[Rfam]
RNA sequence: CAUUCCAAGGAGCGUUGCAGCAUGGUGUUUUCGACACCGUGUCAGGCUUGGAUAUCUUUAUCGCAACGGCGCUCACGUUAC
Numbered sequence: 001c002a003u004u005c006c007a008a009g010g011a012g013c014g015u016u017g018c019a020g021c022a023u024g025g026u027g028u029u030u031u032c033g034a035c036a037c038c039g040u041g042u043c044a045g046g047c048u049u050g051g052a053u054a055u056c057u058u059u060a061u062c063g064c065a066a067c068g069g070c071g072c073u074c075a076c077g078u079u080a081c
Base pairs, nucleotide, nucleotide: 004052005051006050007049008048021041022040023039024038025037026036027035028034
RNA: SAH (S-adenosyl-L-homocysteine) riboswitch aptamer